[Rfam]
RNA sequence: AGUUUAAGAGAUAAAAACAUAGUUUCUGUUGGUAGUCAGAACCUAUAUAUAAUUUAAUAUAGCAGUAACCUGCCCUCCUGGGGUUGUCCAUUCUCUAUAAGUUACAU
Number, nucleotide and partner (000 for none) at each position: 001a000002g000003u000004u099005u000006a000007a096008g095009a094010g093011a092012u000013a000014a000015a000016a000017a000018c000019a000020u000021a000022g042023u041024u000025u040026c039027u038028g037029u000030u000031g000032g000033u000034a000035g000036u000037c028038a027039g026040a025041a023042c022043c062044u061045a060046u059047a058048u057049a000050u000051a000052a000053u000054u000055u000056a000057a048058u047059a046060u045061a044062g043063c000064a000065g000066u000067a000068a000069c000070c000071u000072g084073c083074c082075c081076u000077c000078c000079u000080g000081g075082g074083g073084u072085u000086g000087u000088c000089c000090a000091u000092u011093c010094u009095c008096u007097a000098u000099a004100a000101g000102u000103u000104a000105c000106a000107u000

Shown here is a 107-nucleotide RNA from Clostridium puniceum, a member of the family "azaaromatic riboswitch aptamer (yjdF RNA)". The organism belongs to Clostridium, within Bacteria.